[Rfam]
RNA sequence: AUCGUUCGGCGGUUUCCUCCCAUUCCCCGAACGGUGUUCCCCUCUGAAGGUUUGACCUUCAUUUUUGGCCGGGCCGCUUUCGUGCCCGGCCUUU
Numbered sequence: 001a002u003c004g005u006u007c008g009g010c011g012g013u014u015u016c017c018u019c020c021c022a023u024u025c026c027c028c029g030a031a032c033g034g035u036g037u038u039c040c041c042c043u044c045u046g047a048a049g050g051u052u053u054g055a056c057c058u059u060c061a062u063u064u065u066u067g068g069c070c071g072g073g074c075c076g077c078u079u080u081c082g083u084g085c086c087c088g089g090c091c092u093u094u
Stems, first nucleotide, its partner, number of pairs: 001035005007029003045061007069089006075082002
This 94-nucleotide RNA from Mesorhizobium waimense belongs to the Rfam family "Alphaproteobacterial ar15". It scores 54 bits against the family's covariance model. For this family Rfam cites "Identification of two small regulatory RNAs linked to virulence in Brucella abortus 2308" (Caswell et al., Mol Microbiol, 2012). NCBI's taxonomy places the organism under Bacteria, Pseudomonadati, Pseudomonadota, Alphaproteobacteria, Mesorhizobium. By type it is a small RNA.